[Rfam]
RNA sequence: AGUCCGAUAGUAUGGUAGAAAGAAAAAUAUGAACCUUUCUACCACACUAUCUAUUAUUGAAUAAAGUUGUACUGUAUUAUAGAUCAAUCU
Numbered sequence: 001a002g003u004c005c006g007a008u009a010g011u012a013u014g015g016u017a018g019a020a021a022g023a024a025a026a027a028u029a030u031g032a033a034c035c036u037u038u039c040u041a042c043c044a045c046a047c048u049a050u051c052u053a054u055u056a057u058u059g060a061a062u063a064a065a066g067u068u069g070u071a072c073u074g075u076a077u078u079a080u081a082g083a084u085c086a087a088u089c090u
Stems, first nucleotide, its partner, number of pairs: 006051006013044010023028001
This 90-nucleotide RNA from Nelumbo nucifera belongs to the Rfam family "Plastid-psbM 3UTR RNA". A search with the family's covariance model found it, with a score of 54 bits. From the family's description: Plastid psbM is a non-coding RNA (ncRNA) recognised in plastids. Lineage of the source: Eukaryota > Viridiplantae > Tracheophyta > Mesangiospermae > Nelumbo. Rfam classes the family as a cis-regulatory element. The literature on the family includes a 2023 paper in Plant Commun by Richter et al., "Retrograde signaling in plants: A critical review focusing on the GUN pathway and beyond".